[Rfam]
RNA sequence: AACAUCAAUAUUAAUCGCAGAUGCAGCACUAUGUUAAUGAUCCUUAUCUUAAAGGUAUCAUGAGUUUGAUUCAGGGAUCUUUCCUUAUAUCAAACUCGUUUUUUGGUGUUGUUUAGCGUAGAAUAAUAAUUUUUGAACGUUGCUGGGCGCCUGAUGUUGAAUUUUUUGAUGAUACAUUGGGAAUCAGCUGUCUCAACAUUU
Number, nucleotide and partner (000 for none) at each position: 001a000002a000003c000004a000005u000006c000007a000008a000009u000010a000011u000012u000013a000014a000015u000016c118017g117018c116019a000020g000021a000022u000023g112024c111025a110026g109027c108028a107029c106030u105031a104032u000033g000034u000035u000036a000037a061038u060039g059040a058041u000042c000043c055044u054045u053046a000047u000048c000049u000050u000051a000052a000053a045054g044055g043056u000057a000058u040059c039060a038061u037062g097063a096064g095065u094066u093067u000068g091069a090070u089071u000072c000073a000074g000075g000076g000077a000078u000079c000080u000081u000082u000083c000084c000085u000086u000087a000088u000089a070090u069091c068092a000093a066094a065095c064096u063097c062098g000099u000100u000101u000102u000103u000104u031105g030106g029107u028108g027109u026110u025111g024112u023113u000114u000115a000116g018117c017118g016119u000120a000121g000122a000123a000124u000125a000126a000127u000128a000129a000130u000131u000132u000133u000134u000135g194136a193137a191138c190139g189140u000141u000142g000143c000144u000145g000146g000147g000148c000149g000150c181151c180152u000153g000154a177155u176156g175157u174158u000159g000160a000161a170162u169163u168164u000165u000166u000167u000168g163169a162170u161171g000172a000173u000174a157175c156176a155177u154178u000179g000180g151181g150182a000183a000184u000185c000186a000187g000188c000189u139190g138191u137192c000193u136194c135195a000196a000197c000198a000199u000200u000201u000
Small nucleolar RNA snR32: a 201-nucleotide RNA from Kazachstania africana. It scores 122 bits against the family's covariance model. NCBI's taxonomy places the organism under Eukaryota, Ascomycota, Saccharomycotina, Kazachstania, Kazachstania africana. Pairs were carried over by alignment from the consensus structure, which was predicted with WAR. Rfam classes the family as an H/ACA-box small nucleolar RNA. On this family, see Balakin et al., Nucleic Acids Res 1993: "SnR31, snR32, and snR33: three novel, non-essential snRNAs from Saccharomyces cerevisiae".